[Rfam]
RNA sequence: GGGGGAGUACUGUCGCAAGGCAGAAACUUAAAGGAAUUGACGGAAUGGCACCACAAGGCGUGGAAUAUGCGGCUUAAUUUGACUCAACACGGGGAAUGUUACCAGGUCAGGACACUGUCAGGAUGGACAGAUUGAGAGCUCUUUCUUGAUUCAGUGGAUGGUGGUGCAUGGCCGCUCCUGAUCGGUGGAGUGAUUUGUCUGGUUGAUUCCGAUAACGGGUGAGAUAUCUGCCUUCCAAUAGCCCCAGUCACGCAUUGUAGGGAUGCCAUCAGGUGAAACCUCGGUUGAUCCUCUGGUGCCUGAGUGUUCUGGGUUCAGCUUCUCUGAGGUGCUGUGUCAGCCACCAAUGGCACGCAUGCUAGAGCCAACAGCAGGUCUGUGAUGCUCCCAGAUGUCCUGGGCCGCACGCGCAUUACAUUGACACAGUGAAGGUGCUAAGCUUCCUUGUGAAGCCCAUCUCAGAAGUGAGUUGGAAACCAUGCAAAUCUGUGGUGUACUGGGGAUAGAUGAUUGCAACUGUCUGCCUUGAACGAGGAAUGCCUAGUAUGCUUGUGUCAUCAGCACAAACAGAUUGUGUCCCUGCCAUUUGUACACA
Numbered sequence: 001g002g003g004g005g006a007g008u009a010c011u012g013u014c015g016c017a018a019g020g021c022a023g024a025a026a027c028u029u030a031a032a033g034g035a036a037u038u039g040a041c042g043g044a045a046u047g048g049c050a051c052c053a054c055a056a057g058g059c060g061u062g063g064a065a066u067a068u069g070c071g072g073c074u075u076a077a078u079u080u081g082a083c084u085c086a087a088c089a090c091g092g093g094g095a096a097u098g099u100u101a102c103c104a105g106g107u108c109a110g111g112a113c114a115c116u117g118u119c120a121g122g123a124u125g126g127a128c129a130g131a132u133u134g135a136g137a138g139c140u141c142u143u144u145c146u147u148g149a150u151u152c153a154g155u156g157g158a159u160g161g162u163g164g165u166g167c168a169u170g171g172c173c174g175c176u177c178c179u180g181a182u183c184g185g186u187g188g189a190g191u192g193a194u195u196u197g198u199c200u201g202g203u204u205g206a207u208u209c210c211g212a213u214a215a216c217g218g219g220u221g222a223g224a225u226a227u228c229u230g231c232c233u234u235c236c237a238a239u240a241g242c243c244c245c246a247g248u249c250a251c252g253c254a255u256u257g258u259a260g261g262g263a264u265g266c267c268a269u270c271a272g273g274u275g276a277a278a279c280c281u282c283g284g285u286u287g288a289u290c291c292u293c294u295g296g297u298g299c300c301u302g303a304g305u306g307u308u309c310u311g312g313g314u315u316c317a318g319c320u321u322c323u324c325u326g327a328g329g330u331g332c333u334g335u336g337u338c339a340g341c342c343a344c345c346a347a348u349g350g351c352a353c354g355c356a357u358g359c360u361a362g363a364g365c366c367a368a369c370a371g372c373a374g375g376u377c378u379g380u381g382a383u384g385c386u387c388c389c390a391g392a393u394g395u396c397c398u399g400g401g402c403c404g405c406a407c408g409c410g411c412a413u414u415a416c417a418u419u420g421a422c423a424c425a426g427u428g429a430a431g432g433u434g435c436u437a438a439g440c441u442u443c444c445u446u447g448u449g450a451a452g453c454c455c456a457u458c459u460c461a462g463a464a465g466u467g468a469g470u471u472g473g474a475a476a477c478c479a480u481g482c483a484a485a486u487c488u489g490u491g492g493u494g495u496a497c498u499g500g501g502g503a504u505a506g507a508u509g510a511u512u513g514c515a516a517c518u519g520u521c522u523g524c525c526u527u528g529a530a531c532g533a534g535g536a537a538u539g540c541c542u543a544g545u546a547u548g549c550u551u552g553u554g555u556c557a558u559c560a561g562c563a564c565a566a567a568c569a570g571a572u573u574g575u576g577u578c579c580c581u582g583c584c585a586u587u588u589g590u591a592c593a594c595a
Stems, first nucleotide, its partner, number of pairs: 002029003011022004038593002040590003044587007053577002057541005062416001064414003068410004072405002078093004102400005108394001113156005126145002129142003160388002163386004169382001170380001171376003174372003181220003185216002187196003200211003227363003231329004237323001240320003333354007420493001422491005432480003454473002458469004500531001505526002508523002547569002550566005
A member of the RNA family "Eukaryotic small subunit ribosomal RNA" from Trachelomonas sp. T201, 595 nucleotides of a longer RNA. Its family is annotated with ribosome and structural constituent of ribosome in the Gene Ontology. Pairs were carried over by alignment from the consensus structure, which is taken from published work. The sequence is in the family's curated seed alignment. The literature on the family includes a 2001 paper in Science by Yusupov et al., "Crystal structure of the ribosome at 5.5 A resolution". NCBI's taxonomy places the organism under Eukaryota, Euglenozoa, Euglenida, Spirocuta, Trachelomonas.